[Rfam]
RNA: chrB-b RNA
RNA sequence: UGGGGUAAAUGCAGACACCCCACCAGACGGUGCGCCGUUCAAGCUCUGC
Number, nucleotide and partner (000 for none) at each position: 001u022002g021003g020004g019005g018006u017007a000008a000009a000010u000011g049012c048013a047014g046015a045016c000017a006018c005019c004020c003021c002022a001023c000024c000025a000026g039027a038028c037029g036030g035031u000032g000033c000034g000035c030036c029037g028038u027039u026040c000041a000042a000043g000044c000045u015046c014047u013048g012049c011